[Rfam]
Nucleotides: 109
Base pairs, nucleotide, nucleotide: 003046004045005044006043007042008041009040010039015036016035017034018033019032048104049103050102051101052100053099054098055097056096057095058094
Number, partner (000 for none) and nucleotide at each position: 001000c002000u003046a004045c005044c006043c007042c008041a009040u010039g011000a012000u013000g014000c015036u016035c017034a018033g019032g020000u021000c022000c023000g024000c025000c026000g027000c028000a029000u030000c031000u032019c033018c034017u035016g036015g037000a038000u039010c040009g041008u042007g043006g044005g045004g046003u047000c048104g049103g050102c051101c052100g053099a054098c055097u056096g057095g058094c059000a060000a061000g062000c063000u064000g065000u066000c067000a068000a069000a070000a071000g072000c073000g074000g075000u076000u077000c078000c079000u080000c081000g082000u083000g084000c085000c086000g087000u088000a089000u090000g091000c092000g093000a094058g095057c096056u097055g098054g099053u100052c101051g102050g103049c104048c105000c106000c107000c108000a109000a
The record is a 109-nucleotide sequence from Gellertiella hungarica, which matches "EcpR1" in Rfam. The literature on the family includes a 2007 paper in Mol Microbiol by del Val et al., "Identification of differentially expressed small non-coding RNAs in the legume endosymbiont Sinorhizobium meliloti by comparative genomics". Rfam describes the family as follows. Perviously named SmelC291, SmrC10, or Sra33. According to its overproduction phenotype it was renamed Elongated Cell Phenotype RNA1. Rfam links the family to the GO terms negative regulation of cell cycle, regulation of translation in response to stress and mRNA binding. The family's consensus secondary structure was predicted with WAR. NCBI's taxonomy places the organism under Bacteria, Pseudomonadati, Pseudomonadota, Alphaproteobacteria, Gellertiella.